Shown here is a 151-nucleotide RNA sequence from Arthrobacter sp. UKPF54-2, a member of the family "FMN riboswitch aptamer (RFN element)".
RNA sequence: AUACGUGCUCCGGGGUCGGUGUAAGUCCGAACCGGCGGUGAUAGUCCGCGACCCGAAAGCCGGAACUUUCCGCAAGGAAGGCGACGGCGGACGGUUGAACCGGUGGAACUCCGGUACCGACAGUUAAAGUCUGGAUGAGAGAAGCACGUAC
Numbered sequence: 001a002u003a004c005g006u007g008c009u010c011c012g013g014g015g016u017c018g019g020u021g022u023a024a025g026u027c028c029g030a031a032c033c034g035g036c037g038g039u040g041a042u043a044g045u046c047c048g049c050g051a052c053c054c055g056a057a058a059g060c061c062g063g064a065a066c067u068u069u070c071c072g073c074a075a076g077g078a079a080g081g082c083g084a085c086g087g088c089g090g091a092c093g094g095u096u097g098a099a100c101c102g103g104u105g106g107a108a109c110u111c112c113g114g115u116a117c118c119g120a121c122a123g124u125u126a127a128a129g130u131c132u133g134g135a136u137g138a139g140a141g142a143a144g145c146a147c148g149u150a151c
Base pairs, nucleotide, nucleotide: 003149004148005147006146007145008144009143010141017029018028019027031130032129033119034118035049036048037047038046044117045116053094054093099115100114101113102112103111121133122132123131
Pairs were carried over by alignment from the consensus structure, which is taken from published work.
The source organism's lineage runs through Bacteria, Bacillati, Actinomycetes, Micrococcales and Arthrobacter.